[Rfam]
RNA sequence: UUGUCAGUCAGGCUUCUGGCUGGAGUCCAGCUCUCAACUGGAUCCAGUCUCUAGCUGGGGCAUGACUACAAU
Numbered sequence: 001u002u003g004u005c006a007g008u009c010a011g012g013c014u015u016c017u018g019g020c021u022g023g024a025g026u027c028c029a030g031c032u033c034u035c036a037a038c039u040g041g042a043u044c045c046a047g048u049c050u051c052u053a054g055c056u057g058g059g060g061c062a063u064g065a066c067u068a069c070a071a072u
Base pairs, nucleotide, nucleotide: 007066008065009064012061013060014059017057018056019055020054021053022052023051024050027041028040029039030038

mir-344 microRNA precursor family: a 72-nucleotide RNA from Mus musculus.
On this family, see Chiang et al., Genes Dev 2010: "Mammalian microRNAs: experimental evaluation of novel and previously annotated genes".
It scores 61 bits against the family's covariance model.
NCBI's taxonomy places the organism under Eukaryota, Metazoa, Eumetazoa, Sarcopterygii, Mus.